[Rfam]
RNA: Small nucleolar RNA SNORA17
Organism: Rattus norvegicus
RNA sequence: CCUGCCCCUAGAGGCAUUUGCAGGUAUGGCUGCUGUGUCACAUGUAAGUCAGAAGGUGGCAGAGAGGAGAGAGGCUAUGAUUACUCUCAGCAUUCUGACUUAUGGACAUCUGAAUAAUUAGUAGCCUAACAUU
Numbered sequence: 001c002c003u004g005c006c007c008c009u010a011g012a013g014g015c016a017u018u019u020g021c022a023g024g025u026a027u028g029g030c031u032g033c034u035g036u037g038u039c040a041c042a043u044g045u046a047a048g049u050c051a052g053a054a055g056g057u058g059g060c061a062g063a064g065a066g067g068a069g070a071g072a073g074g075c076u077a078u079g080a081u082u083a084c085u086c087u088c089a090g091c092a093u094u095c096u097g098a099c100u101u102a103u104g105g106a107c108a109u110c111u112g113a114a115u116a117a118u119u120a121g122u123a124g125c126c127u128a129a130c131a132u133u
Stems, first nucleotide, its partner, number of pairs: 002062005007056003013050003019047001022045001025042001027040004069130001072127007087113004093106003